[Rfam]
RNA sequence: UCCCUCAACCAUGGGAGUCCCGGCAGGGGCUGAGAGGGCGCUGACGCCGCGCCGACCGUCAUACCUGAUGCGGGUCAUGCCGCCGUAGGAAGUCGAGCCAUAUGUCG
Numbered sequence: 001u002c003c004c005u006c007a008a009c010c011a012u013g014g015g016a017g018u019c020c021c022g023g024c025a026g027g028g029g030c031u032g033a034g035a036g037g038g039c040g041c042u043g044a045c046g047c048c049g050c051g052c053c054g055a056c057c058g059u060c061a062u063a064c065c066u067g068a069u070g071c072g073g074g075u076c077a078u079g080c081c082g083c084c085g086u087a088g089g090a091a092g093u094c095g096a097g098c099c100a101u102a103u104g105u106c107g
Base pairs, nucleotide, nucleotide: 006095008093009092011059012058013057014056017030018029019028020027021026037053038052039051040050041049064089065088066087067086070083071082072081073080

This 107-nucleotide RNA from Microbacterium sp. MYb72 belongs to the Rfam family "TPP riboswitch aptamer (THI element)". Its family is annotated with thiamine pyrophosphate binding in the Gene Ontology.